[Rfam]
Source information:
SAM riboswitch aptamer (S box leader): a 93-nucleotide sequence from Zhihengliuella flava. From the family's description: The SAM riboswitch is found upstream of a number of genes which code for proteins involved in methionine or cysteine biosynthesis in Gram-positive bacteria. The SAM riboswitch acts at the level of transcription termination control.
RNA sequence: CAACCAUCCAGAGCGGCUGAGAGAUCUGGCUCGUCGACGCCGCAGCAACCAUCCGUCAUGACGGAAAGGUGCUAACGCCAGGACCGAUGGAGA
Numbered sequence: 001c002a003a004c005c006a007u008c009c010a011g012a013g014c015g016g017c018u019g020a021g022a023g024a025u026c027u028g029g030c031u032c033g034u035c036g037a038c039g040c041c042g043c044a045g046c047a048a049c050c051a052u053c054c055g056u057c058a059u060g061a062c063g064g065a066a067a068g069g070u071g072c073u074a075a076c077g078c079c080a081g082g083a084c085c086g087a088u089g090g091a092g093a
Stems, first nucleotide, its partner, number of pairs: 004090005013043005021032003026081004044073004049069002052065004077085001